Shown here is a 134-nucleotide RNA sequence from Danionella cerebrum, a member of the family "Small nucleolar RNA SNORA47". The family's RNA type in Rfam is H/ACA-box small nucleolar RNA.
RNA sequence: UGGAGGUUUGAGAAAGUUUGGCAGUUCCUUUAGUACUGACACAACUGGUUUUGCCCUCCGAGACUAAGCCCCAAACACAGUGUGUUGUGUCUGAAGCCCCAUUUCAGACCGAUAGCUGAGUUUGUGAACAUUUC
Dot-bracket structure: .(((((........((((((.((((.........)))).)).))))........)))))................(((...(..(((.....(..(...(......)..)..)...))).)..)))........
The match comes from Rfam's covariance-model search (52 bits). The source organism's lineage runs through Eukaryota, Teleostomi, Cypriniphysae, Danioninae and Danionella.